[Rfam]
RNA sequence: UGGGUGUGCUCAGAGCUGGGGCCUGAAGAAUGGCUCUUCGGUUUAAAACACUCCCAAUAGGAACCUGAGGUCACUGUGAAGAGGGCAUAAAAUGUGUGUCCUACUAUCAACAGACACCUUACAGAC
Numbered sequence: 001u002g003g004g005u006g007u008g009c010u011c012a013g014a015g016c017u018g019g020g021g022c023c024u025g026a027a028g029a030a031u032g033g034c035u036c037u038u039c040g041g042u043u044u045a046a047a048a049c050a051c052u053c054c055c056a057a058u059a060g061g062a063a064c065c066u067g068a069g070g071u072c073a074c075u076g077u078g079a080a081g082a083g084g085g086c087a088u089a090a091a092a093u094g095u096g097u098g099u100c101c102u103a104c105u106a107u108c109a110a111c112a113g114a115c116a117c118c119u120u121a122c123a124g125a126c
Stems, first nucleotide, its partner, number of pairs: 002055003006051003013044007020036001021034003068119004075112003081107001083101007

Overview
Shown here is a 126-nucleotide RNA from Cavia porcellus, a member of the family "Small nucleolar RNA SNORA11". Rfam links the family to the GO terms RNA processing and nucleolus. On this family, see Gu et al., Nucleic Acids Res 2005: "A novel experimental approach for systematic identification of box H/ACA snoRNAs from eukaryotes". It scores 105 bits against the family's covariance model. U107 (SNORA11) is a member of the H/ACA class of snoRNAs that guide the sites of modification of uridines to pseudouridines. This snoRNA was identified by RT-PCR from blood cells and its expression confirmed by Northern blot analysis. There is no predicted target for this guide snRNA. Rfam classes the family as an H/ACA-box small nucleolar RNA.